Rfam assigns this 64-nucleotide RNA sequence from Nematostella vectensis to the family "mir-9412 microRNA precursor family".
[Rfam]
RNA sequence: GAUAAAUGCUAAAGACUGGAAGACAUGAGAAUUUAAAACCAUGUCUUGAAGAGAACAACAGGGA
Numbered sequence: 001g002a003u004a005a006a007u008g009c010u011a012a013a014g015a016c017u018g019g020a021a022g023a024c025a026u027g028a029g030a031a032u033u034u035a036a037a038a039c040c041a042u043g044u045c046u047u048g049a050a051g052a053g054a055a056c057a058a059c060a061g062g063g064a
Base pairs, nucleotide, nucleotide: 007060008059010057016051017050020047021046022045023044024043025042026041027040